[Rfam]
RNA sequence: CUAUCAGAGCUGGUCACUGUCAUUACCCUAAUAUGUGGAUAUGGAAAUACCAGCGAUGA
Dot-bracket structure: ........((((((.....((((...((........))..))))....)))))).....
RNA: Transposase-1 RNA